The family of this 119-nucleotide sequence from Pigmentiphaga humi is "SAH (S-adenosyl-L-homocysteine) riboswitch aptamer". The base pairs follow the family's consensus structure, which is taken from published work. NCBI's taxonomy places the organism under Bacteria, Pseudomonadati, Betaproteobacteria, Alcaligenaceae, Pigmentiphaga. The match comes from Rfam's covariance-model search (48 bits).

RNA sequence: CGACCUGAGGAGCGUUGCGACGACCGGCAUUUCUUGCCCGGCCGCCAGGCUCAGGUUACGGAUCGGUCGAGCCGCGCACCAGGCGCGCCGCCGCUCCCCGGCAACGGCGCUCGCCCCUG
Numbered sequence: 001c002g003a004c005c006u007g008a009g010g011a012g013c014g015u016u017g018c019g020a021c022g023a024c025c026g027g028c029a030u031u032u033c034u035u036g037c038c039c040g041g042c043c044g045c046c047a048g049g050c051u052c053a054g055g056u057u058a059c060g061g062a063u064c065g066g067u068c069g070a071g072c073c074g075c076g077c078a079c080c081a082g083g084c085g086c087g088c089c090g091c092c093g094c095u096c097c098c099c100g101g102c103a104a105c106g107g108c109g110c111u112c113g114c115c116c117c118u119g
Base pairs, nucleotide, nucleotide: 002057003056004055005054006053007052008051021044022043024041025040026039